Group II catalytic intron D1-D4-6: a 235-nucleotide RNA from Sporolactobacillus inulinus.
On this family, see Chu et al., EMBO J 2001: "Control of branch-site choice by a group II intron".
Taxonomically the source falls in Sporolactobacillus inulinus (Bacteria, Bacillati, Caryophanales, Sporolactobacillus).

RNA sequence: UAACCCCCAUCGAAUAAGAGCGCCACCCAUCCAUAACGAGUCUUGGAAGGCUGAAGGAAACUUCAGUCUUUAAGCGUAGACAGUGAGCCAGUGGGUCGUUAGCCAUGCGGUUGAUGGGAUUGAGACUCGAAAACCUAGAAAAUUUUGGAAUGCUGAUGGCGUUGUAAUUCCAGAAAGCAACAUACCAGUCAUUGUUAGGGCAAGAGGAUUGGUGAUUUCCCUGGGUCGAUCCAUC
Numbered sequence: 001u002a003a004c005c006c007c008c009a010u011c012g013a014a015u016a017a018g019a020g021c022g023c024c025a026c027c028c029a030u031c032c033a034u035a036a037c038g039a040g041u042c043u044u045g046g047a048a049g050g051c052u053g054a055a056g057g058a059a060a061c062u063u064c065a066g067u068c069u070u071u072a073a074g075c076g077u078a079g080a081c082a083g084u085g086a087g088c089c090a091g092u093g094g095g096u097c098g099u100u101a102g103c104c105a106u107g108c109g110g111u112u113g114a115u116g117g118g119a120u121u122g123a124g125a126c127u128c129g130a131a132a133a134c135c136u137a138g139a140a141a142a143u144u145u146u147g148g149a150a151u152g153c154u155g156a157u158g159g160c161g162u163u164g165u166a167a168u169u170c171c172a173g174a175a176a177g178c179a180a181c182a183u184a185c186c187a188g189u190c191a192u193u194g195u196u197a198g199g200g201c202a203a204g205a206g207g208a209u210u211g212g213u214g215a216u217u218u219c220c221c222u223g224g225g226u227c228g229a230u231c232c233a234u235c
Base pairs, nucleotide, nucleotide: 012032014030018028020026022201023200036084037083040081041080042079043078044076045075046071047070048069049068050067051066052065053064054063055062056061121229122227124226126224127223129221147219148218149217150216151215152178153177154176157172158171159170183214184213185212186211187210188209189208190207192205193204
Dot-bracket structure: ...........(.(...(.(.[[..).).).)...((..(((((((((((((((((....)))))))))))...)).)))).))....................................((.(.((.(.................((((((((..(((..........)))...)))....((((((((.((......]]..)).))))))))))))).).)).)).)......

Rfam's curators write: Group II introns are found in rRNA, tRNA and mRNA of organelles in fungi, plants and protists, and also in mRNA in bacteria.